The family of this 52-nucleotide RNA sequence is "chrB-b RNA". The family's consensus secondary structure is taken from published work. It is one of the family's seed sequences.
[Rfam]
RNA sequence: UCGGGCUUGAUCGCAGUCGCCCGGCUUCCCAAGGCAUCCGCCCAAGCACUGC
Numbered sequence: 001u002c003g004g005g006c007u008u009g010a011u012c013g014c015a016g017u018c019g020c021c022c023g024g025c026u027u028c029c030c031a032a033g034g035c036a037u038c039c040g041c042c043c044a045a046g047c048a049c050u051g052c
Stems, first nucleotide, its partner, number of pairs: 001024006013052005033042003